[Rfam]
RNA sequence: GGCCAUGCACGCGGGAGCUCGGGUUUGACCGGGCUGAGAGGGUAACUAGACGGUUACCGACCGCUGAACCUGACCUGGGUAAUGCCAGCGCAGGGAGAUGCCGCCUGCUUCAUC
Numbered sequence: 001g002g003c004c005a006u007g008c009a010c011g012c013g014g015g016a017g018c019u020c021g022g023g024u025u026u027g028a029c030c031g032g033g034c035u036g037a038g039a040g041g042g043u044a045a046c047u048a049g050a051c052g053g054u055u056a057c058c059g060a061c062c063g064c065u066g067a068a069c070c071u072g073a074c075c076u077g078g079g080u081a082a083u084g085c086c087a088g089c090g091c092a093g094g095g096a097g098a099u100g101c102c103g104c105c106u107g108c109u110u111c112a113u114c
Stems, first nucleotide, its partner, number of pairs: 007101003011064004017034005041058007069094004075088004

About this RNA: Shown here is a 114-nucleotide RNA from Candidatus Hydrogenisulfobacillus filiaventi, a member of the family "TPP riboswitch aptamer (THI element)". Vitamin B(1) in its active form thiamin pyrophosphate (TPP) is an essential coenzyme that is synthesised by coupling of pyrimidine and thiazole moieties in bacteria. Taxonomically the source falls in Candidatus Hydrogenisulfobacillus (Bacteria, Bacillati, Bacillota, Clostridia). The match comes from Rfam's covariance-model search (58 bits).